[Rfam]
RNA: mir-44 microRNA precursor family
Organism: Wuchereria bancrofti
RNA sequence: CAAGUACCAUUCUGGAUGUUUCUCUGAGUCAUAUGUCAAAUUCAUAUAUCUUACGACUAGAGGAACAUUCAGCAUUGGUUAUGGU
Numbered sequence: 001c002a003a004g005u006a007c008c009a010u011u012c013u014g015g016a017u018g019u020u021u022c023u024c025u026g027a028g029u030c031a032u033a034u035g036u037c038a039a040a041u042u043c044a045u046a047u048a049u050c051u052u053a054c055g056a057c058u059a060g061a062g063g064a065a066c067a068u069u070c071a072g073c074a075u076u077g078g079u080u081a082u083g084g085u
Base pairs, nucleotide, nucleotide: 006079007078008077009076012072013071014070015069016068017067018066019065020064022063023062027058028057029056030055032053033052